[Rfam]
RNA sequence: GCAGGGAAGAGGAAGAAAGAGAGAAUCCAAGAGCACUGGGAAUGGGAACAUGGAGGAAAGCAUGAGCUCUGUACCUUGUCUUCUAGCAUCAAAAGAGACAUGGCAUUUUGUUUUCCCAGCGCCUCCCAUUCCUAUUGUUCUUGGAUACCACUUCCCCUACCCCUUUGGC
Numbered sequence: 001g002c003a004g005g006g007a008a009g010a011g012g013a014a015g016a017a018a019g020a021g022a023g024a025a026u027c028c029a030a031g032a033g034c035a036c037u038g039g040g041a042a043u044g045g046g047a048a049c050a051u052g053g054a055g056g057a058a059a060g061c062a063u064g065a066g067c068u069c070u071g072u073a074c075c076u077u078g079u080c081u082u083c084u085a086g087c088a089u090c091a092a093a094a095g096a097g098a099c100a101u102g103g104c105a106u107u108u109u110g111u112u113u114u115c116c117c118a119g120c121g122c123c124u125c126c127c128a129u130u131c132c133u134a135u136u137g138u139u140c141u142u143g144g145a146u147a148c149c150a151c152u153u154c155c156c157c158u159a160c161c162c163c164u165u166u167g168g169c
Base pairs, nucleotide, nucleotide: 009160011158012157015154016153017152023148026145027144028143029142030141031140032139033138034137035136037134038133039132040131041130042129043128044127045126046125047124049121051119053117055116056115057114058113059112060111061110

Background
MIR2118 microRNA precursor family: a 169-nucleotide RNA from Digitaria exilis. Its family is annotated with RISC complex and miRNA-mediated post-transcriptional gene silencing in the Gene Ontology. It scores 125 bits against the family's covariance model. The organism belongs to Digitaria, within Eukaryota.